The family of this 94-nucleotide RNA sequence is "PhotoRC-II RNA".

RNA sequence: UAACAAUUGUCCUCUUCCUAACCGAGACCUAUGGGGAGGUUAAACACAGUCUCUCAUAUCCCCGCUAAGGGGUGCGGGGAGCAUAGUAACUCCA
Numbered sequence: 001u002a003a004c005a006a007u008u009g010u011c012c013u014c015u016u017c018c019u020a021a022c023c024g025a026g027a028c029c030u031a032u033g034g035g036g037a038g039g040u041u042a043a044a045c046a047c048a049g050u051c052u053c054u055c056a057u058a059u060c061c062c063c064g065c066u067a068a069g070g071g072g073u074g075c076g077g078g079g080a081g082c083a084u085a086g087u088a089a090c091u092c093c094a
Base pairs, nucleotide, nucleotide: 014038015037016036017035018034019033020032024053025052026051027050028049059080060079061078062077063076064075065074

The sequence is in the family's curated seed alignment.
The base pairs follow the family's consensus structure, which is taken from published work.
It is annotated as a cis-regulatory element.